[Rfam]
RNA sequence: UAAGCGCCUAUUUCGCCCUCCGCCGACGUGCGGACCCGACGAAACCCGC
Numbered sequence: 001u002a003a004g005c006g007c008c009u010a011u012u013u014c015g016c017c018c019u020c021c022g023c024c025g026a027c028g029u030g031c032g033g034a035c036c037c038g039a040c041g042a043a044a045c046c047c048g049c
Stems, first nucleotide, its partner, number of pairs: 013042003019034005
Description: Shown here is a 49-nucleotide sequence from Syntrophotalea acetylenica, a member of the family "Moco-II RNA". By type it is a cis-regulatory element. The family has 7 seed sequences and 11 matches in Rfam 15.1.